[Rfam]
RNA sequence: CCUGUUUUGCUGCAAACAGUUUUCCACCCCAACAUGCAUCCCUGGUAACGGGAUUGUGUGAAGCUUGGGGGACAACGAAGCCCGUGGAGAAAUAUCUCCGGAAGAGAGACCCGUGAGGCGAUCUCAAGUCUGGCAGCGUCAGGCCGGAUCGGGAG
Numbered sequence: 001c002c003u004g005u006u007u008u009g010c011u012g013c014a015a016a017c018a019g020u021u022u023u024c025c026a027c028c029c030c031a032a033c034a035u036g037c038a039u040c041c042c043u044g045g046u047a048a049c050g051g052g053a054u055u056g057u058g059u060g061a062a063g064c065u066u067g068g069g070g071g072a073c074a075a076c077g078a079a080g081c082c083c084g085u086g087g088a089g090a091a092a093u094a095u096c097u098c099c100g101g102a103a104g105a106g107a108g109a110c111c112c113g114u115g116a117g118g119c120g121a122u123c124u125c126a127a128g129u130c131u132g133g134c135a136g137c138g139u140c141a142g143g144c145c146g147g148a149u150c151g152g153g154a155g
Base pairs, nucleotide, nucleotide: 002019003018004017005016006015007014028069029068030067031066032065033060034059035058036057037056038055041052042051043050044049082100084098086096101125102124104122111118112117129148130147131146132145133144134143
RNA: Group II catalytic intron D1-D4-7